RNA sequence: CCGCUUGCGCCCGGGCAGGUGUGGUCCUAUAUUCCAUCUUGUCCGGGGCAACCCGGACUAUGGCGAUAAACGCACCUGUAAUAGGCGGCUCGGACCCGGGGGCGGUACCCGGCGGCUCCACCAAAUCUCCCGUUCAUUGCGGGCGUGUGGGGCCGAAACAGGAUCGACGGACGUUCAAAGAGGCCAGCUUUCGCUCGGUAAGGUACCACCGUUAUCGGUCCAUGAUCACAGUUGCCAAUGACAACAGUGCUCCGGUGGCGAUGGCUGCGUAAGCAGCUCUCAAUACCAAACCUAAGUCCUUGCGCUUAGCCGCGUAAGGCGGGGUUCGCAGGUACCUGGCAACAGAAACCUGCACC
Numbered sequence: 001c002c003g004c005u006u007g008c009g010c011c012c013g014g015g016c017a018g019g020u021g022u023g024g025u026c027c028u029a030u031a032u033u034c035c036a037u038c039u040u041g042u043c044c045g046g047g048g049c050a051a052c053c054c055g056g057a058c059u060a061u062g063g064c065g066a067u068a069a070a071c072g073c074a075c076c077u078g079u080a081a082u083a084g085g086c087g088g089c090u091c092g093g094a095c096c097c098g099g100g101g102g103c104g105g106u107a108c109c110c111g112g113c114g115g116c117u118c119c120a121c122c123a124a125a126u127c128u129c130c131c132g133u134u135c136a137u138u139g140c141g142g143g144c145g146u147g148u149g150g151g152g153c154c155g156a157a158a159c160a161g162g163a164u165c166g167a168c169g170g171a172c173g174u175u176c177a178a179a180g181a182g183g184c185c186a187g188c189u190u191u192c193g194c195u196c197g198g199u200a201a202g203g204u205a206c207c208a209c210c211g212u213u214a215u216c217g218g219u220c221c222a223u224g225a226u227c228a229c230a231g232u233u234g235c236c237a238a239u240g241a242c243a244a245c246a247g248u249g250c251u252c253c254g255g256u257g258g259c260g261a262u263g264g265c266u267g268c269g270u271a272a273g274c275a276g277c278u279c280u281c282a283a284u285a286c287c288a289a290a291c292c293u294a295a296g297u298c299c300u301u302g303c304g305c306u307u308a309g310c311c312g313c314g315u316a317a318g319g320c321g322g323g324g325u326u327c328g329c330a331g332g333u334a335c336c337u338g339g340c341a342a343c344a345g346a347a348a349c350c351u352g353c354a355c356c
Stems, first nucleotide, its partner, number of pairs: 041058007062195005072188002075183003086173002090170003096112005113155007196211004202221002205219003322337004328353006